[Rfam]
RNA: 6S / SsrS RNA
RNA sequence: CUAUCCCUGCUGCGUACGUGAUAGCCGUGUAGUUUUUGCCAACACAAAAACUAUGGGAGUCCGUACUUCGUAUCUGACUUGCAUGCCCAUCUGCUGGGACACAAACAGGACACGAGAGGACACCCACCUGCAUUGCAGGUUAAAACUUGCGGCGCCACGGCUCAGUGGGGUUUUU
Number, nucleotide and partner (000 for none) at each position: 001c000002u000003a172004u000005c170006c169007c168008u167009g166010c165011u164012g163013c000014g161015u160016a000017c159018g158019u157020g000021a000022u000023a000024g000025c000026c000027g000028u000029g000030u000031a147032g146033u145034u144035u143036u142037u000038g140039c139040c138041a000042a000043c000044a000045c000046a000047a000048a000049a000050a000051c000052u000053a000054u000055g125056g124057g123058a000059g121060u120061c119062c118063g000064u116065a000066c000067u000068u000069c114070g113071u112072a000073u110074c109075u108076g000077a000078c000079u000080u000081g102082c000083a000084u000085g000086c098087c097088c096089a095090u000091c000092u000093g000094c000095u089096g088097g087098g086099a000100c000101a000102c081103a000104a000105a000106c000107a000108g075109g074110a073111c000112a071113c070114g069115a000116g064117a000118g062119g061120a060121c059122a000123c057124c056125c055126a000127c000128c000129u000130g000131c000132a000133u000134u000135g000136c000137a000138g040139g039140u038141u000142a036143a035144a034145a033146c032147u031148u000149g000150c000151g000152g000153c000154g000155c000156c000157a019158c018159g017160g015161c014162u000163c012164a011165g010166u009167g008168g007169g006170g005171u000172u003173u000174u000175u000